Rfam assigns this 75-nucleotide sequence from Sphingobium cloacae to the family "Makes More Granules Regulator RNA (mmgR)". Clan: suhB sRNA clan. A search with the family's covariance model found it, with a score of 45 bits. The source organism's lineage runs through Bacteria, Pseudomonadota, Sphingomonadales, Sphingobiaceae and Sphingobium.
RNA sequence: GGAACGGGCCUUUCAGGCAUCCUCUCCUAAAAACUUCAAAGCCGUCCUUCGGGGCGGCUUUUUUUUGCUUUCAGC
Numbered sequence: 001g002g003a004a005c006g007g008g009c010c011u012u013u014c015a016g017g018c019a020u021c022c023u024c025u026c027c028u029a030a031a032a033a034c035u036u037c038a039a040a041g042c043c044g045u046c047c048u049u050c051g052g053g054g055c056g057g058c059u060u061u062u063u064u065u066u067g068c069u070u071u072c073a074g075c
Stems, first nucleotide, its partner, number of pairs: 008018004039060009